About this RNA:
The record is an 89-nucleotide sequence from Lachnospiraceae bacterium G41, which matches "c-di-GMP-I riboswitch aptamer" in Rfam. The source organism's lineage runs through Bacteria, Bacillati, Clostridia, Lachnospirales and Lachnospiraceae. The family's consensus secondary structure is taken from published work.

RNA sequence: ACUAGUGAGGGGCAAACUUUCCGAAAGGUUAGGACGCAAAGUCGUAAGCCGUAAAAGAAGAUUUUUUUCUAGGUAGUUAGACUGCAAUC
Number, nucleotide and partner (000 for none) at each position: 001a000002c000003u000004a000005g000006u000007g000008a000009g000010g000011g000012g037013c036014a000015a000016a000017c032018u031019u000020u000021c028022c027023g000024a000025a000026a000027g022028g021029u000030u000031a018032g017033g000034a000035c000036g013037c012038a000039a000040a083041g082042u081043c080044g000045u079046a078047a077048g074049c073050c072051g000052u000053a000054a000055a068056a067057g066058a065059a000060g000061a000062u000063u000064u000065u058066u057067u056068u055069c000070u000071a000072g050073g049074u048075a000076g000077u047078u046079a045080g043081a042082c041083u040084g000085c000086a000087a000088u000089c000